[Rfam]
RNA sequence: UUGCACGUGGACAUGUCUGCUCCUCUUUUCUUUGGGAGUAGGAAUGUAUCCCUAACAUGCUACGCUGAUUAAGGGGUUAUCAGGGCUAACAACCUUACAGGAGAGGUUGAGUAGUAGUAUAUUUCUCCUACAUUA
Number, nucleotide and partner (000 for none) at each position: 001u000002u000003g060004c059005a058006c000007g056008u055009g000010g000011a000012c000013a000014u000015g000016u042017c041018u040019g039020c038021u037022c036023c035024u000025c000026u000027u000028u000029u000030c000031u000032u000033u000034g000035g023036g022037a021038g020039u019040a018041g017042g016043a000044a000045u000046g000047u000048a000049u000050c000051c000052c000053u000054a000055a008056c007057a000058u005059g004060c003061u000062a000063c000064g000065c000066u000067g000068a000069u000070u000071a000072a000073g128074g127075g126076g125077u000078u000079a000080u000081c000082a000083g000084g000085g115086c114087u000088a000089a000090c109091a108092a107093c106094c105095u104096u103097a000098c000099a000100g000101g000102a000103g096104a095105g094106g093107u092108u091109g090110a000111g000112u000113a000114g086115u085116a000117g000118u000119a000120u000121a000122u000123u000124u000125c076126u075127c074128c073129u000130a000131c000132a000133u000134u000135a000
Small nucleolar RNA U109: a 135-nucleotide sequence from Peromyscus maniculatus.
A search with the family's covariance model found it, with a score of 126 bits.
By type it is an H/ACA-box small nucleolar RNA.